[Rfam]
RNA sequence: GCCGAGCUCAGUAGCGGGAGCUUGUAACCCAAGUGGGGGCAUUAAGGUGGUGUGGAUGUUUGGUGCGGUCUCUGGGCCUAGGUCCGUGUGUGGAUAUUUGCUGGCUUGCCCGUUCCAAGUUGGUAGUGGGCGGAGUGGCCUUGGCGAAGGCCUCGACCUCUUCGGCCCUAUAGUGACAGGCACAGCGUGAGGCUGGCUUCACAGAGCAGCGAUCACUGUCCGCUUCCAACGGUGGAAGGAUAACAGGCUGCUUCACCAUGGGCCUGCUUCGGGCUCAGAGACCCUCCAUAACAGACCACCAUCUUU
Numbered sequence: 001g002c003c004g005a006g007c008u009c010a011g012u013a014g015c016g017g018g019a020g021c022u023u024g025u026a027a028c029c030c031a032a033g034u035g036g037g038g039g040c041a042u043u044a045a046g047g048u049g050g051u052g053u054g055g056a057u058g059u060u061u062g063g064u065g066c067g068g069u070c071u072c073u074g075g076g077c078c079u080a081g082g083u084c085c086g087u088g089u090g091u092g093g094a095u096a097u098u099u100g101c102u103g104g105c106u107u108g109c110c111c112g113u114u115c116c117a118a119g120u121u122g123g124u125a126g127u128g129g130g131c132g133g134a135g136u137g138g139c140c141u142u143g144g145c146g147a148a149g150g151c152c153u154c155g156a157c158c159u160c161u162u163c164g165g166c167c168c169u170a171u172a173g174u175g176a177c178a179g180g181c182a183c184a185g186c187g188u189g190a191g192g193c194u195g196g197c198u199u200c201a202c203a204g205a206g207c208a209g210c211g212a213u214c215a216c217u218g219u220c221c222g223c224u225u226c227c228a229a230c231g232g233u234g235g236a237a238g239g240a241u242a243a244c245a246g247g248c249u250g251c252u253u254c255a256c257c258a259u260g261g262g263c264c265u266g267c268u269u270c271g272g273g274c275u276c277a278g279a280g281a282c283c284c285u286c287c288a289u290a291a292c293a294g295a296c297c298a299c300c301a302u303c304u305u306u
Base pairs, nucleotide, nucleotide: 001040002039003038004023005022006021007020008019009018028037029036030035044305045304046303047302048301049300050299051298052297054296057293058292059290061288063286065284067282070280071279072278073277074276075275076274077273078272079271080265081264082263083262084261085260086259087258088257090256091255092254094253102250103249104248105247106246107245108244110239111238113237114236115235116234117233119230120229121228122227123226125224126223127222128167129166131164132163133162134161135160137158138157140155143152144151145150168173175220176219177218178217179216184213186211187210188209193204194203195202
The record is a 306-nucleotide sequence from Zizania palustris, which matches "Plant signal recognition particle RNA" in Rfam. Rfam classes the family as a non-coding RNA gene. A search with the family's covariance model found it, with a score of 248 bits. Clan: SRP clan. For this family Rfam cites "Towards the structure of the mammalian signal recognition particle" (Wild et al., Curr Opin Struct Biol, 2002). The base pairs follow the family's consensus structure, which is taken from published work.